[Rfam]
RNA: Small nucleolar RNA SNORD22
Organism: Cnephaeus nilssonii
RNA sequence: UCCCAUUGAGGAAACAUGCACAUGUCUUGCCUCCUGUCCUAGUCCCAGAGCCUGUAAAGGGGAACCCAGAGGACUGGCUAGGGAAGAAGAGGAACUGUCUAAGGGAU
Numbered sequence: 001u002c003c004c005a006u007u008g009a010g011g012a013a014a015c016a017u018g019c020a021c022a023u024g025u026c027u028u029g030c031c032u033c034c035u036g037u038c039c040u041a042g043u044c045c046c047a048g049a050g051c052c053u054g055u056a057a058a059g060g061g062g063a064a065c066c067c068a069g070a071g072g073a074c075u076g077g078c079u080a081g082g083g084a085a086g087a088a089g090a091g092g093a094a095c096u097g098u099c100u101a102a103g104g105g106a107u
Base pairs, nucleotide, nucleotide: 001106002105003104004103